A member of the RNA family "ilvH RNA", 68 nucleotides long.

RNA sequence: GACGAAUCUAUUGCCUGCCAAGCCUGGCGCUUACCGGCGCCAGGGGAGGGCAGCGAAAAACGACAGUU
Numbered sequence: 001g002a003c004g005a006a007u008c009u010a011u012u013g014c015c016u017g018c019c020a021a022g023c024c025u026g027g028c029g030c031u032u033a034c035c036g037g038c039g040c041c042a043g044g045g046g047a048g049g050g051c052a053g054c055g056a057a058a059a060a061c062g063a064c065a066g067u068u
Stems, first nucleotide, its partner, number of pairs: 011056003015053005023044009